[Rfam]
RNA sequence: GCAUGGAUGAAUUCUGCAUUGGCUUCUUCAGUAGCUAAUGCAGUCAGACACUAUGCUAGAGUAUAUUUCCUUUUCACUUGUUCCUAAUGGUAUGCUUUGUGUAAAGUUAGCAUGUCCAUACAAGUAGGAUACAUGA
Numbered sequence: 001g002c003a004u005g006g007a008u009g010a011a012u013u014c015u016g017c018a019u020u021g022g023c024u025u026c027u028u029c030a031g032u033a034g035c036u037a038a039u040g041c042a043g044u045c046a047g048a049c050a051c052u053a054u055g056c057u058a059g060a061g062u063a064u065a066u067u068u069c070c071u072u073u074u075c076a077c078u079u080g081u082u083c084c085u086a087a088u089g090g091u092a093u094g095c096u097u098u099g100u101g102u103a104a105a106g107u108u109a110g111c112a113u114g115u116c117c118a119u120a121c122a123a124g125u126a127g128g129a130u131a132c133a134u135g136a
Base pairs, nucleotide, nucleotide: 001056002055003054004053005052006051014043015042016041017040018039019038073129074128075127076125077124078123079122080121085120086119089116090115091114092113093112094111095110096109
Small nucleolar RNA SNORA15: a 136-nucleotide RNA sequence from Chelonia mydas. Rfam links the family to the GO terms nucleolus and RNA processing. Rfam 15.1 lists 974 matches to the family in 624 species. From the family's description: ACA15 is a member of the H/ACA class of snoRNA that guide the sites of modification of uridines to pseudouridines. It scores 79 bits against the family's covariance model. Rfam classes the family as an H/ACA-box small nucleolar RNA. Lineage of the source: Eukaryota > Gnathostomata > Euteleostomi > Archelosauria > Chelonia. The base pairs follow the family's consensus structure, which was predicted with RNAfold.